[Rfam]
mir-145 microRNA precursor family: an 86-nucleotide RNA sequence from Anolis carolinensis.

Nucleotides: 086
Stems, first nucleotide, its partner, number of pairs: 018070004023065002026062012
Number, partner (000 for none) and nucleotide at each position: 001000a002000c003000u004000g005000u006000g007000u008000c009000c010000u011000c012000g013000g014000g015000g016000u017000c018070c019069a020068g021067u022000u023065u024064u025000c026062c027061c028060a029059g030058g031057a032056a033055u034054c035053c036052c037051u038000u039000a040000g041000a042000u043000g044000a045000u046000a047000a048000g049000a050000g051037g052036g053035g054034g055033a056032u057031u058030c059029c060028u061027g062026g063000a064024a065023a066000u067021a068020c069019u070018g071000u072000u073000c074000u075000u076000g077000g078000g079000g080000u081000c082000a083000u084000g085000g086000c
Taxonomically the source falls in Anolis (Eukaryota, Opisthokonta, Chordata, Lepidosauria). The base pairs follow the family's consensus structure, which was predicted with RNAalifold. The literature on the family includes a 2003 paper in Mol Cancer Res by Michael et al., "Reduced accumulation of specific microRNAs in colorectal neoplasia". Rfam's curators put it in the seed alignment. Rfam links the family to the GO terms miRNA-mediated post-transcriptional gene silencing and RISC complex.